Small nucleolar RNA SNORA74: a 202-nucleotide RNA sequence from Oryzias sinensis. The family's consensus secondary structure was predicted with PFOLD. U19 belongs to the H/ACA class of snoRNAs. snoRNAs bind a number of proteins (including dyskerin, Gar1p and Nop10p in the case of the H/ACA class) to form snoRNP complexes. This class are thought to guide the sites of modification of uridines to pseudouridines by forming direct base pairing interactions with substrate RNAs. Targets may include ribosomal and spliceosomal RNAs but the exact functions of many snoRNAs, including U19, are not confirmed. Co-precipitation of U19 snoRNA with RNase MRP RNA suggests that U19 may be involved in pre-rRNA processing. Its family is annotated with nucleolus and RNA processing in the Gene Ontology.
[Rfam]
RNA sequence: ACCAGCUCUCAGUCAGCUGUCCAGACGUCGUUUGUGUCUGGACGAGCGUUACAGUGCUGGUAGAGGAAGCUCCUGGAUCGGCUUCACUGCAGCAGGUUCUGUUUUAGGACCUGGUGCUGCUGAGCGGUCGCAGGGCUCAGCCCAGUGAGAGUGGACCGUCCUGGUUCUGCUGCAGGACGGUCCUAGUACAGGGCUAUACAAA
Numbered sequence: 001a002c003c004a005g006c007u008c009u010c011a012g013u014c015a016g017c018u019g020u021c022c023a024g025a026c027g028u029c030g031u032u033u034g035u036g037u038c039u040g041g042a043c044g045a046g047c048g049u050u051a052c053a054g055u056g057c058u059g060g061u062a063g064a065g066g067a068a069g070c071u072c073c074u075g076g077a078u079c080g081g082c083u084u085c086a087c088u089g090c091a092g093c094a095g096g097u098u099c100u101g102u103u104u105u106a107g108g109a110c111c112u113g114g115u116g117c118u119g120c121u122g123a124g125c126g127g128u129c130g131c132a133g134g135g136c137u138c139a140g141c142c143c144a145g146u147g148a149g150a151g152u153g154g155a156c157c158g159u160c161c162u163g164g165u166u167c168u169g170c171u172g173c174a175g176g177a178c179g180g181u182c183c184u185a186g187u188a189c190a191g192g193g194c195u196a197u198a199c200a201a202a
Stems, first nucleotide, its partner, number of pairs: 001061006008054002012052002016047003019043008069136002072134004081125004087119001089117003093113002095110001097109004139195005153183003157179007